[Rfam]
RNA sequence: GGGGGUGUGGGGGAGGUCCCUCAGCCUGGAUCGUGAGAGGGUGCAAGCCAGGCUGAGGGACCCCACCAGAGCACG
Numbered sequence: 001g002g003g004g005g006u007g008u009g010g011g012g013g014a015g016g017u018c019c020c021u022c023a024g025c026c027u028g029g030a031u032c033g034u035g036a037g038a039g040g041g042u043g044c045a046a047g048c049c050a051g052g053c054u055g056a057g058g059g060a061c062c063c064c065a066c067c068a069g070a071g072c073a074c075g
Stems, first nucleotide, its partner, number of pairs: 004072001006070001008068003012064002015062012028049002031046001033044003